Rfam assigns this 79-nucleotide sequence from Kribbella turkmenica to the family "SAH (S-adenosyl-L-homocysteine) riboswitch aptamer".
The family's consensus secondary structure is taken from published work.
A search with the family's covariance model found it, with a score of 39 bits.
[Rfam]
RNA sequence: CAGGUCGAGAGGCGCUGCAACGGACUCUCUGGUCCGCCACGCUCGACCCGGGUUCCGACUGCAAGGGCGCCUCCGGAGA
Number, nucleotide and partner (000 for none) at each position: 001c000002a000003g048004g047005u046006c045007g044008a043009g000010a000011g000012g000013c000014g000015c000016u000017g000018c000019a000020a000021c036022g035023g034024a033025c032026u031027c000028u000029c000030u000031g026032g025033u024034c023035c022036g021037c000038c000039a000040c000041g000042c000043u008044c007045g006046a005047c004048c003049c000050g000051g000052g000053u000054u000055c000056c000057g000058a000059c000060u000061g000062c000063a000064a000065g000066g000067g000068c000069g000070c000071c000072u000073c000074c000075g000076g000077a000078g000079a000

Notes: Taxonomically the source falls in Kribbella (Bacteria, Bacillati, Propionibacteriales, Kribbellaceae).